[Rfam]
This 98-nucleotide RNA sequence from Oceanisphaera avium belongs to the Rfam family "Bacterial small signal recognition particle RNA". A reference for the family is Rosenblad et al. (2003), "SRPDB: Signal Recognition Particle Database", Nucleic Acids Res. The match comes from Rfam's covariance-model search (70 bits). The base pairs follow the family's consensus structure, which is taken from published work. The signal recognition particle (SRP) is a universally conserved ribonucleoprotein involved in the co-translational targeting of proteins to membranes.

RNA sequence: CGUUGGUCCUCUCGCAUCAGAAUCUUGUUUACUAGGUCAGGCCCGGAAGGGAGCAGCCAAAGCAGGAACCUUUGAGUGCCGGGAUGUGGCUGGCGGGG
Numbered sequence: 001c002g003u004u005g006g007u008c009c010u011c012u013c014g015c016a017u018c019a020g021a022a023u024c025u026u027g028u029u030u031a032c033u034a035g036g037u038c039a040g041g042c043c044c045g046g047a048a049g050g051g052a053g054c055a056g057c058c059a060a061a062g063c064a065g066g067a068a069c070c071u072u073u074g075a076g077u078g079c080c081g082g083g084a085u086g087u088g089g090c091u092g093g094c095g096g097g098g
Base pairs, nucleotide, nucleotide: 004092005091006090007089008088010084011083012082013081014080015076017075018074019073020072021071023067024066025065026064027063028062029061033060035058036057037056042051043050044049